[Rfam]
RNA: SAM riboswitch aptamer (S box leader)
Organism: Lottiidibacillus patelloidae
RNA sequence: UUCUUAUCCCGAGCUGGCGGAGGGACAGGCCCAACGAAGCCCAGCAACCGACACCGCAGAAUUACUGGUGAAAAGGUGCUAACCUGUUGCAAGACUAUUGUCUUGAUCGAUAAGAG
Numbered sequence: 001u002u003c004u005u006a007u008c009c010c011g012a013g014c015u016g017g018c019g020g021a022g023g024g025a026c027a028g029g030c031c032c033a034a035c036g037a038a039g040c041c042c043a044g045c046a047a048c049c050g051a052c053a054c055c056g057c058a059g060a061a062u063u064a065c066u067g068g069u070g071a072a073a074a075g076g077u078g079c080u081a082a083c084c085u086g087u088u089g090c091a092a093g094a095c096u097a098u099u100g101u102c103u104u105g106a107u108c109g110a111u112a113a114g115a116g
Stems, first nucleotide, its partner, number of pairs: 001116008013042001016041003022032003026089003029085001043080004048076002052070005090105006